[Rfam]
Nucleotides: 067
Base pairs, nucleotide, nucleotide: 004064006062010058011057012056015053016052017051020049021048022047023046024045025044026043027042028041029040
Number, partner (000 for none) and nucleotide at each position: 001000a002000c003000a004064g005000c006062a007000u008000u009000c010058g011057g012056a013000a014000c015053g016052u017051c018000a019000a020049u021048c022047u023046a024045c025044c026043g027042a028041g029040c030000a031000a032000u033000c034000u035000c036000a037000c038000c039000a040029g041028c042027u043026c044025g045024g046023u047022g048021g049020a050000a051017g052016a053015u054000c055000u056012u057011c058010c059000c060000u061000u062006u063000a064004c065000u066000g067000u